[Rfam]
RNA sequence: GGAUCGAGCGAUGACUUUACAUAUACAUUCCUUGGAAAGCUGAACAAAAAUGUGAGGAAAACUCUAUACCGGCUACCCUCGGGCUUCUAACUGAGGUCC
Numbered sequence: 001g002g003a004u005c006g007a008g009c010g011a012u013g014a015c016u017u018u019a020c021a022u023a024u025a026c027a028u029u030c031c032u033u034g035g036a037a038a039g040c041u042g043a044a045c046a047a048a049a050a051u052g053u054g055a056g057g058a059a060a061a062c063u064c065u066a067u068a069c070c071g072g073c074u075a076c077c078c079u080c081g082g083g084c085u086u087c088u089a090a091c092u093g094a095g096g097u098c099c
Base pairs, nucleotide, nucleotide: 001099002098003097004096005095026057028056029055030054032047033046034045
About this RNA: Rfam assigns this 99-nucleotide sequence from Papio anubis to the family "Small nucleolar RNA SNORD116". It scores 53 bits against the family's covariance model. The literature on the family includes a 2000 paper in Proc Natl Acad Sci U S A by Cavaille et al., "Identification of brain-specific and imprinted small nucleolar RNA genes exhibiting an unusual genomic organization". Rfam classes the family as a C/D-box small nucleolar RNA.